Rfam assigns this 184-nucleotide RNA sequence from Vibrio ostreae to the family "Lysine riboswitch aptamer". It scores 121 bits against the family's covariance model. The organism belongs to Vibrio, within Bacteria.

[Rfam]
RNA sequence: UUUCGAUGUAGAGGCGCGAUAUCGAUAAGUAGUCAUGAUUAGGGUGAUGCCAGUGAGUUAUGACAAAAGGUGAUAUCGCCGAAGUCAGCACGCCUGUCAAUGCGUCUGGCUGGGGUUGUCAGCGAAUAGGGACAACACUGCCAUAGUCUAUUUUUUCCUUAAACUAUGGAGCGCUACUGUAGGG
Dot-bracket structure: .......((((....(((((((((.......((((((((.................))))))))......)))))))))...((((((.((((........))))))))))((.((((((..........)))))).)).(((((((...............)))))))....)))).......
Numbered sequence: 001u002u003u004c005g006a007u008g009u010a011g012a013g014g015c016g017c018g019a020u021a022u023c024g025a026u027a028a029g030u031a032g033u034c035a036u037g038a039u040u041a042g043g044g045u046g047a048u049g050c051c052a053g054u055g056a057g058u059u060a061u062g063a064c065a066a067a068a069g070g071u072g073a074u075a076u077c078g079c080c081g082a083a084g085u086c087a088g089c090a091c092g093c094c095u096g097u098c099a100a101u102g103c104g105u106c107u108g109g110c111u112g113g114g115g116u117u118g119u120c121a122g123c124g125a126a127u128a129g130g131g132a133c134a135a136c137a138c139u140g141c142c143a144u145a146g147u148c149u150a151u152u153u154u155u156u157c158c159u160u161a162a163a164c165u166a167u168g169g170a171g172c173g174c175u176a177c178u179g180u181a182g183g184g
Stems, first nucleotide, its partner, number of pairs: 008177004016079009032064008083111006090105004112139002115136006141169007